[Rfam]
Overview:
Shown here is a 98-nucleotide RNA from Caenorhabditis remanei, a member of the family "mir-36 microRNA precursor family". The literature on the family includes a 2009 paper in Genome Biol by Kato et al., "Dynamic expression of small non-coding RNAs, including novel microRNAs and piRNAs/21U-RNAs, during Caenorhabditis elegans development". Rfam 15.1 lists 199 matches to the family in 31 species. Its Rfam clan is "mir-36 clan".

RNA sequence: UCCUCUGGUCGGAUCGGCCAUUCACUGGUUCUCGCCGCGGUCAUAUUUCAAAUAUGAUUAUCACCGGGUGAAAAUCAGAGCAGGGCCGAUCCCACCGA
Numbered sequence: 001u002c003c004u005c006u007g008g009u010c011g012g013a014u015c016g017g018c019c020a021u022u023c024a025c026u027g028g029u030u031c032u033c034g035c036c037g038c039g040g041u042c043a044u045a046u047u048u049c050a051a052a053u054a055u056g057a058u059u060a061u062c063a064c065c066g067g068g069u070g071a072a073a074a075u076c077a078g079a080g081c082a083g084g085g086c087c088g089a090u091c092c093c094a095c096c097g098a
Base pairs, nucleotide, nucleotide: 015088016087017086018085019084021082023080025078026077027076028075029074030073032071033070034069035068036067038066040064041063043061044060045059
Pairs were carried over by alignment from the consensus structure, which was predicted with WAR.